[Rfam]
RNA sequence: GGGGUCGUCAAAGUGGUUGUGCAAAUGCUUUAUGUCAUAUCACAGCCACUUUGAUAGGCUCUA
Numbered sequence: 001g002g003g004g005u006c007g008u009c010a011a012a013g014u015g016g017u018u019g020u021g022c023a024a025a026u027g028c029u030u031u032a033u034g035u036c037a038u039a040u041c042a043c044a045g046c047c048a049c050u051u052u053g054a055u056a057g058g059c060u061c062u063a
Stems, first nucleotide, its partner, number of pairs: 005057001007055015026039002